[Rfam]
RNA sequence: AGGCCUGGAGAGAGAAGCAGGGUCUGAUCUGUAGCCUCAUGGCAGCAGUUGAUCAGCUCCUGUCUCUCUCUUUCUCUCUG
Number, nucleotide and partner (000 for none) at each position: 001a000002g000003g000004c000005c000006u000007g000008g072009a071010g070011a069012g068013a067014g066015a065016a000017g063018c062019a061020g060021g000022g058023u000024c056025u055026g054027a053028u052029c051030u000031g000032u048033a000034g046035c045036c000037u000038c000039a000040u000041g000042g000043c000044a000045g035046c034047a000048g032049u000050u000051g029052a028053u027054c026055a025056g024057c000058u022059c000060c020061u019062g018063u017064c000065u015066c014067u013068c012069u011070c010071u009072u008073u000074c000075u000076c000077u000078c000079u000080g000
Notes
The record is an 80-nucleotide RNA from Myotis lucifugus, which matches "mir-574 microRNA precursor family" in Rfam. The family's consensus secondary structure was predicted with RNAalifold. The family is grouped with related families in Rfam's "mir-574 microRNA precursor clan". NCBI's taxonomy places the organism under Eukaryota, Craniata, Dipnotetrapodomorpha, Yangochiroptera, Myotis. Rfam links the family to the GO terms miRNA-mediated post-transcriptional gene silencing and RISC complex.